[Rfam]
RNA sequence: GAGAGUAGCAGCAAAGCACGGUGAGAAUCCGUGUCGCCGCAGGGGCAAGGGUUCCUUGGCAAUGUUCGUCAGCCAAGGGUUAGUCGAUCUUAAGAUAACUCUUAAUCGAAGUUAUCGAAUAGGAAACAGGUUAAUAUUCCUGUACCAGAAUUUCCUUUGUCCACAUCGUAGGAUCGAGAUAGUCAUUGUACAUUUGUCUGUGUAUCUAAGUGUAUAGGCCCAUGAAGAACCGUAAUGGUGAGAAGUGGGUGAAAGCAUGAUGGGGCGAGAGUAAUCUCGCUUAUGAUGAUUUUCGGUCUCCGUGAAAAAGGUGUGGUUACAGAAAUUUUGUUCGUACCAAGAACCGACACAGGUGUCCCUAGGUGAGUAGCCUAAGGCGUGU
Numbered sequence: 001g002a003g004a005g006u007a008g009c010a011g012c013a014a015a016g017c018a019c020g021g022u023g024a025g026a027a028u029c030c031g032u033g034u035c036g037c038c039g040c041a042g043g044g045g046c047a048a049g050g051g052u053u054c055c056u057u058g059g060c061a062a063u064g065u066u067c068g069u070c071a072g073c074c075a076a077g078g079g080u081u082a083g084u085c086g087a088u089c090u091u092a093a094g095a096u097a098a099c100u101c102u103u104a105a106u107c108g109a110a111g112u113u114a115u116c117g118a119a120u121a122g123g124a125a126a127c128a129g130g131u132u133a134a135u136a137u138u139c140c141u142g143u144a145c146c147a148g149a150a151u152u153u154c155c156u157u158u159g160u161c162c163a164c165a166u167c168g169u170a171g172g173a174u175c176g177a178g179a180u181a182g183u184c185a186u187u188g189u190a191c192a193u194u195u196g197u198c199u200g201u202g203u204a205u206c207u208a209a210g211u212g213u214a215u216a217g218g219c220c221c222a223u224g225a226a227g228a229a230c231c232g233u234a235a236u237g238g239u240g241a242g243a244a245g246u247g248g249g250u251g252a253a254a255g256c257a258u259g260a261u262g263g264g265g266c267g268a269g270a271g272u273a274a275u276c277u278c279g280c281u282u283a284u285g286a287u288g289a290u291u292u293u294c295g296g297u298c299u300c301c302g303u304g305a306a307a308a309a310g311g312u313g314u315g316g317u318u319a320c321a322g323a324a325a326u327u328u329u330g331u332u333c334g335u336a337c338c339a340a341g342a343a344c345c346g347a348c349a350c351a352g353g354u355g356u357c358c359c360u361a362g363g364u365g366a367g368u369a370g371c372c373u374a375a376g377g378c379g380u381g382u
Base pairs, nucleotide, nucleotide: 016034017033018032019031020030021029035379036378037377038376043358044357045356046355049338050337054078055077056076057075058074059073063071064070085334086333087332089122090121094116095115096114097113098112099111100109101108126143127142128141129140130139146330147329148328149327150326151325152324153323165312166311167310171299172298173297174296175295176294177293178292179291182287183286184285185284186283188205189204190203191202192201210258211257212256213255219249220248221247222246223245229239230238231237270275344353345352360374361373362372363371

Shown here is a 382-nucleotide part of an RNA from Candidatus Methanoplasma termitum, a member of the family "Archaeal large subunit ribosomal RNA".
Lineage of the source: Archaea > Methanobacteriati > Thermoplasmata > Methanomassiliicoccaceae > Candidatus Methanoplasma.
The family's consensus secondary structure is taken from published work.
A search with the family's covariance model found it, with a score of 2722 bits.